The record is an 84-nucleotide sequence from Platysternon megacephalum, which matches "mir-16 microRNA precursor family" in Rfam. Clan: mir-15 clan. The match comes from Rfam's covariance-model search (37 bits). Rfam links the family to the GO terms RISC complex and miRNA-mediated post-transcriptional gene silencing. The source organism's lineage runs through Eukaryota, Sauropsida, Testudinata, Durocryptodira and Platysternon.
RNA sequence: GGCACCAUAUAGACUAACAGAAGUAUUGGAGCAUUCACCCACAAAAGCUUAUGCUCCAAUACUUCUGUUAGUCUAUAAGGUGCC
Number, nucleotide and partner (000 for none) at each position: 001g084002g083003c082004a000005c080006c079007a000008u000009a000010u077011a074012g073013a072014c071015u070016a069017a068018c067019a000020g064021a000022a063023g062024u061025a060026u059027u058028g057029g056030a000031g000032c000033a000034u000035u000036c000037a000038c000039c000040c000041a000042c000043a000044a000045a000046a000047g000048c000049u000050u000051a000052u000053g000054c000055u000056c029057c028058a027059a026060u025061a024062c023063u022064u020065c000066u000067g018068u017069u016070a015071g014072u013073c012074u011075a000076u000077a010078a000079g006080g005081u000082g003083c002084c001